tRNA: an 83-nucleotide sequence from Albimonas donghaensis. The family's consensus secondary structure is taken from published work. NCBI's taxonomy places the organism under Bacteria, Pseudomonadati, Pseudomonadota, Rhodobacterales, Albimonas.
RNA sequence: GGAGGGGUGGCAGAGCGGUCAAAUGCAACGGACUGUAAAUCCGUCGGGGAAACCCUACGCUGGUUCGAAUCCAGCCCCCUCCA
Dot-bracket structure: (((((((..(((...........))).(((((.......)))))..............(((((.......)))))))))))).

Rfam classes the family as a transfer RNA. It scores 64 bits against the family's covariance model.